[Rfam]
RNA sequence: AAAAGGAGCAAUAGCUAAUCUCUUGUUCUAUCAAGAGAUUAGCUAUUGCUCCUUUUUUU
Numbered sequence: 001a002a003a004a005g006g007a008g009c010a011a012u013a014g015c016u017a018a019u020c021u022c023u024u025g026u027u028c029u030a031u032c033a034a035g036a037g038a039u040u041a042g043c044u045a046u047u048g049c050u051c052c053u054u055u056u057u058u059u
Stems, first nucleotide, its partner, number of pairs: 002055014020037006
Record summary
The record is a 59-nucleotide RNA, which matches "Plastid-psbA-3 3UTR RNA" in Rfam. The family's consensus secondary structure was predicted with LocARNA. Rfam's curators write: Plastid psbA-3 is a non-coding RNA (ncRNA) present in plastids. It was identified in inverted repeat sequences in the 3 prime untranslate region (3UTR) of photosystem II quinone-binding protein (psbA). The literature on the family includes a 2023 paper in Plant Commun by Richter et al., "Retrograde signaling in plants: A critical review focusing on the GUN pathway and beyond".